[Rfam]
RNA sequence: ACAACCCUGCCCAGAGAAGGUUGGCCACCAACUGGAAGCGAGUCUUGCGUGGAACGGGGGUAACCCCGGCUGCGAAGCGUAGACAGCGAGCAGACAGGCUAUGUGAUAGAGCCCCGAAAUCUAGUUGUGGGAGCAGACGCGGUCACAAUCGCGGAAGGCAACACCAAAGGGUCAAGAAUGGCCUGACCCUGAGGUCCCACCGGGGUCCAAGAGCA
Numbered sequence: 001a002c003a004a005c006c007c008u009g010c011c012c013a014g015a016g017a018a019g020g021u022u023g024g025c026c027a028c029c030a031a032c033u034g035g036a037a038g039c040g041a042g043u044c045u046u047g048c049g050u051g052g053a054a055c056g057g058g059g060g061u062a063a064c065c066c067c068g069g070c071u072g073c074g075a076a077g078c079g080u081a082g083a084c085a086g087c088g089a090g091c092a093g094a095c096a097g098g099c100u101a102u103g104u105g106a107u108a109g110a111g112c113c114c115c116g117a118a119a120u121c122u123a124g125u126u127g128u129g130g131g132a133g134c135a136g137a138c139g140c141g142g143u144c145a146c147a148a149u150c151g152c153g154g155a156a157g158g159c160a161a162c163a164c165c166a167a168a169g170g171g172u173c174a175a176g177a178a179u180g181g182c183c184u185g186a187c188c189c190u191g192a193g194g195u196c197c198c199a200c201c202g203g204g205g206u207c208c209a210a211g212a213g214c215a
Base pairs, nucleotide, nucleotide: 011035012034013033014032019029020028021027023183024182025181038087039086042084043083044082045081046079047078048074049073050072051071052070055068056067057066058065059064109207111206112205113204114203115202116201127200128199129198130197131196132195133159134158138153139152140151141150164194165193168190169189170188171187172186173185174184
The record is a 215-nucleotide sequence, which matches "Group II catalytic intron D1-D4-6" in Rfam.
A reference for the family is Chu et al. (2001), "Control of branch-site choice by a group II intron", EMBO J.
Rfam's curators put it in the seed alignment.
From the family's description: Group II introns are found in rRNA, tRNA and mRNA of organelles in fungi, plants and protists, and also in mRNA in bacteria.